[Rfam]
RNA sequence: ACAAUUUAAUAAAUACCUACUUGUAUAAUAGUGGAAAUAAGGUCCACGAGUCUCUACCAAGUUACCGUAAAUAACUUGACUACAAGUGGUUUCGAUACUCGG
Numbered sequence: 001a002c003a004a005u006u007u008a009a010u011a012a013a014u015a016c017c018u019a020c021u022u023g024u025a026u027a028a029u030a031g032u033g034g035a036a037a038u039a040a041g042g043u044c045c046a047c048g049a050g051u052c053u054c055u056a057c058c059a060a061g062u063u064a065c066c067g068u069a070a071a072u073a074a075c076u077u078g079a080c081u082a083c084a085a086g087u088g089g090u091u092u093c094g095a096u097a098c099u100c101g102g
Stems, first nucleotide, its partner, number of pairs: 018088008029049001031047005058078007
Shown here is a 102-nucleotide RNA from Alkalibacillus haloalkaliphilus, a member of the family "Purine riboswitch aptamer". A search with the family's covariance model found it, with a score of 90 bits. NCBI's taxonomy places the organism under Bacteria, Bacillota, Caryophanales, Bacillaceae, Alkalibacillus. The family's consensus secondary structure is taken from published work.